[Rfam]
RNA sequence: UGUUAAAAUUUCCAUCAAUUUCUACGGUUAAAAAUUGGUAUCUCUAUGUCAUCAUGAGGUUCACGUGGCAUGCCACGUGUAGUUGUCUAGUUAUUCCGUUAAUCAUGCCAAUUUUUAAUAGUAGAAAUGAGUGAAAUUUUAAUA
Numbered sequence: 001u002g003u004u005a006a007a008a009u010u011u012c013c014a015u016c017a018a019u020u021u022c023u024a025c026g027g028u029u030a031a032a033a034a035u036u037g038g039u040a041u042c043u044c045u046a047u048g049u050c051a052u053c054a055u056g057a058g059g060u061u062c063a064c065g066u067g068g069c070a071u072g073c074c075a076c077g078u079g080u081a082g083u084u085g086u087c088u089a090g091u092u093a094u095u096c097c098g099u100u101a102a103u104c105a106u107g108c109c110a111a112u113u114u115u116u117a118a119u120a121g122u123a124g125a126a127a128u129g130a131g132u133g134a135a136a137u138u139u140u141a142a143u144a
Stems, first nucleotide, its partner, number of pairs: 002143010013133003018128008028118006

Shown here is a 144-nucleotide RNA sequence from Gossypium lobatum, a member of the family "MIR7502 microRNA precursor family". Taxonomically the source falls in Gossypium (Eukaryota, Euphyllophyta, malvids, Malvales).